[Rfam]
Nucleotides: 101
Stems, first nucleotide, its partner, number of pairs: 001021006026042006043065008075096007
Number, partner (000 for none) and nucleotide at each position: 001021g002020c003019c004018c005017u006016a007000a008000c009000u010000g011000c012000u013000u014000a015000g016006u017005a018004g019003g020002g021001u022000a023000c024000a025000c026042u027041c028040u029039c030038g031037c032000a033000c034000g035000a036000u037031g038030c039029g040028a041027g042026g043065g044064c045063u046062g047061g048060g049059g050058a051000a052000u053000g054000g055000u056000c057000a058050u059049c060048c061047u062046c063045g064044g065043c066000a067000a068000a069000u070000a071000u072000u073000c074000a075096u076095c077094g078093g079092a080091u081090g082000c083000c084000u085000g086000a087000c088000c089000a090081c091080a092079u093078c094077u095076g096075g097000g098000c099000c100000u101000u
A member of the RNA family "engA RNA", 101 nucleotides long. The family's RNA type in Rfam is cis-regulatory element.